[Rfam]
RNA sequence: CGGAAUAACCCAGGUUAGGGAAUUCGGCAAAAUCGUGGUGUAAGUUUUCAACAAACCAUGUCUGCGUAUAGUAUGCGCAGAUGUCACUGACAAGGGAACAACGACUGUUUAUCAAAAACACAACUCACCGCAAAGCCGUAAGGCUUAGUACAGUGGGUGACGCCUGCUCACCGCCAGUACGUGAAUGCCCUUUUCAAGGGGAGUAAGCGCUGGCAAAGAGCGGGAGUAACUCUGACUCUCUUGAGGUAGCGUAAUACCUCGUCACUUAAUAGGUGACUUGCAUGAAUGGCGUAACGAUUGUUCCACUGUCCCAACCUGGGAUCCGGUGAACUCACUGCGCGGUGAAUAUGCCGCGAU
Numbered sequence: 001c002g003g004a005a006u007a008a009c010c011c012a013g014g015u016u017a018g019g020g021a022a023u024u025c026g027g028c029a030a031a032a033u034c035g036u037g038g039u040g041u042a043a044g045u046u047u048u049c050a051a052c053a054a055a056c057c058a059u060g061u062c063u064g065c066g067u068a069u070a071g072u073a074u075g076c077g078c079a080g081a082u083g084u085c086a087c088u089g090a091c092a093a094g095g096g097a098a099c100a101a102c103g104a105c106u107g108u109u110u111a112u113c114a115a116a117a118a119c120a121c122a123a124c125u126c127a128c129c130g131c132a133a134a135g136c137c138g139u140a141a142g143g144c145u146u147a148g149u150a151c152a153g154u155g156g157g158u159g160a161c162g163c164c165u166g167c168u169c170a171c172c173g174c175c176a177g178u179a180c181g182u183g184a185a186u187g188c189c190c191u192u193u194u195c196a197a198g199g200g201g202a203g204u205a206a207g208c209g210c211u212g213g214c215a216a217a218g219a220g221c222g223g224g225a226g227u228a229a230c231u232c233u234g235a236c237u238c239u240c241u242u243g244a245g246g247u248a249g250c251g252u253a254a255u256a257c258c259u260c261g262u263c264a265c266u267u268a269a270u271a272g273g274u275g276a277c278u279u280g281c282a283u284g285a286a287u288g289g290c291g292u293a294a295c296g297a298u299u300g301u302u303c304c305a306c307u308g309u310c311c312c313a314a315c316c317u318g319g320g321a322u323c324c325g326g327u328g329a330a331c332u333c334a335c336u337g338c339g340c341g342g343u344g345a346a347u348a349u350g351c352c353g354c355g356a357u
Base pairs, nucleotide, nucleotide: 001325002324003323004322009320010319011318012317013316014315015314016313018311019310020309035059036058037057038056039055044049060082061081062080063079064078065077066076067075068074083087095304096303097302098301099300100299101298102296103295106120107119108118123158124157125156126155127154128153130151131148134145135144136143137142161291162290163289164288166221167220168219171218173214174213175212176211177210180209181208182207188201189200190199191198222240223239224238225237226236227235241245261277262276263275264274265273266272338355339354340353341352342351
RNA: Archaeal large subunit ribosomal RNA, nucleotides 1674 to 2030
Organism: Candidatus Micrarchaeum sp. AZ1